[Rfam]
RNA sequence: GGGGACCUUCGGGGCCCUAUAACAUCCGGGCAAUCCAUUUGCCCGCACAUGCAAACGGAAGACAGUAA
Number, nucleotide and partner (000 for none) at each position: 001g018002g017003g016004g015005a000006c014007c013008u012009u000010c000011g000012g008013g007014g006015c004016c003017c002018u001019a000020u000021a000022a000023c000024a000025u000026c000027c045028g044029g043030g042031c041032a040033a039034u000035c000036c000037a000038u000039u033040u032041g031042c030043c029044c028045g027046c000047a000048c000049a000050u000051g000052c000053a000054a000055a000056c000057g000058g000059a000060a000061g000062a000063c000064a000065g000066u000067a000068a000
Rfam assigns this 68-nucleotide sequence from Aliiroseovarius pelagivivens to the family "L2-Alphaproteobacteria ribosomal protein leader". By type it is a cis-regulatory leader. The match comes from Rfam's covariance-model search (65 bits).